Source information:
Hepatitis C virus stem-loop SL1412 RNA: a 48-nucleotide RNA from Orthohepacivirus hominis. By type it is a cis-regulatory element. The literature on the family includes a 2016 paper in Mol Cell by Pirakitikulr et al., "The Coding Region of the HCV Genome Contains a Network of Regulatory RNA Structures".

[Rfam]
Nucleotides: 048
Stems, first nucleotide, its partner, number of pairs: 006043001008041001010038002013035002019030003
Number, partner (000 for none) and nucleotide at each position: 001000g002000c003000g004000g005000g006043c007000a008041u009000a010038g011037c012000g013035u014034a015000u016000u017000u018000c019030u020029c021028c022000a023000u024000g025000g026000u027000g028021g029020g030019g031000a032000a033000c034014u035013g036000g037011g038010c039000g040000a041008a042000g043006g044000u045000c046000c047000u048000g

NCBI's taxonomy places the organism under Viruses, Riboviria, Orthornavirae, Kitrinoviricota, Orthohepacivirus hominis. About the family: HCV_SL1412 is a stem-loop in the coding region of the C (core) gene.